[Rfam]
RNA sequence: UUGCUUUCCAGGCUUGUUUUCAGUUGCCUGCGAUCUGUUUAAAGACUCAGGCAGCUAAAGCAAGUCUUGGACGCUG
Numbered sequence: 001u002u003g004c005u006u007u008c009c010a011g012g013c014u015u016g017u018u019u020u021c022a023g024u025u026g027c028c029u030g031c032g033a034u035c036u037g038u039u040u041a042a043a044g045a046c047u048c049a050g051g052c053a054g055c056u057a058a059a060g061c062a063a064g065u066c067u068u069g070g071a072c073g074c075u076g
Stems, first nucleotide, its partner, number of pairs: 003074002006071003010067011022056009032046001
A member of the RNA family "mir-1788 microRNA precursor family" from Scleropages formosus, 76 nucleotides long. The source organism's lineage runs through Eukaryota, Opisthokonta, Metazoa, Osteoglossiformes and Scleropages. Its family is annotated with miRNA-mediated post-transcriptional gene silencing and RISC complex in the Gene Ontology.